[Rfam]
Source information
Shown here is a 232-nucleotide part of an RNA from Sediminispirochaeta smaragdinae, a member of the family "Bacterial large subunit ribosomal RNA". The family's consensus secondary structure is taken from published work. Its family is annotated with ribosome and structural constituent of ribosome in the Gene Ontology. Lineage of the source: Bacteria > Pseudomonadati > Spirochaetia > Sediminispirochaeta > Sediminispirochaeta smaragdinae.
RNA sequence: GAGUUACCGUAUGUAGCGAGGUUAAGGGAUAGGAGUCCCGAAGCCGGAGGGAAACCGAGUCUUAAUAGGGCGACUAGUUGCAUGUGGUAGACCCGAAGCCAGGUGAUCUAUCUAUGGCCAGGUUGAAGCUCAGGUAAAACUGAGUGGAGGACCGAACCCUAGUCCGUUGAAAAGGGCAGGGAUGAGCUGUGGAUAGGAGUGAAAGGCUAAUCAAACCUGGAGAUAGCUGGUA
Dot-bracket structure: ....(((((((((((((..((((..(((........)))..))))...((....))..((((.....)))).....)))))))))))))..((.(...((((((...((((((((((((.((((...((((((......))))))....))))...(((..((((........)))).)))..).))))))))))).(((.....)))......))))))......).))..